[Rfam]
RNA sequence: CAAUAAGCUAUCUAGGGUUCCGUUGAUGUUGUGAUUUGGCAUCAAGUCUGGCCCGAGAGAUAGGUAUAUGGAAGAUACAUGUUAGAUAAUGUGAUCUCUCGUAUAACACGGAAGGACAAAAGCCUGGGAGAU
Numbered sequence: 001c002a003a004u005a006a007g008c009u010a011u012c013u014a015g016g017g018u019u020c021c022g023u024u025g026a027u028g029u030u031g032u033g034a035u036u037u038g039g040c041a042u043c044a045a046g047u048c049u050g051g052c053c054c055g056a057g058a059g060a061u062a063g064g065u066a067u068a069u070g071g072a073a074g075a076u077a078c079a080u081g082u083u084a085g086a087u088a089a090u091g092u093g094a095u096c097u098c099u100c101g102u103a104u105a106a107c108a109c110g111g112a113a114g115g116a117c118a119a120a121a122g123c124c125u126g127g128g129a130g131a132u
Stems, first nucleotide, its partner, number of pairs: 008063005015054002020051002022048001023045009065105007107127001109130001113125003
The family of this 132-nucleotide sequence from Paenibacillus psychroresistens is "Guanidine-I riboswitch aptamer". The literature on the family includes a 2004 paper in Proc Natl Acad Sci U S A by Barrick et al., "New RNA motifs suggest an expanded scope for riboswitches in bacterial genetic control".